[Rfam]
RNA: Small nucleolar RNA R160
RNA sequence: AGCGAAAUGAUGAAGCGAAUUUUUGUCUGAAACUGAUGUAGAUCUCUUGUUUCAUACAUGCCUUCAAAGUUCUCCGAUUGCU
Numbered sequence: 001a002g003c004g005a006a007a008u009g010a011u012g013a014a015g016c017g018a019a020u021u022u023u024u025g026u027c028u029g030a031a032a033c034u035g036a037u038g039u040a041g042a043u044c045u046c047u048u049g050u051u052u053c054a055u056a057c058a059u060g061c062c063u064u065c066a067a068a069g070u071u072c073u074c075c076g077a078u079u080g081c082u
Base pairs, nucleotide, nucleotide: 001082002081003080004079005078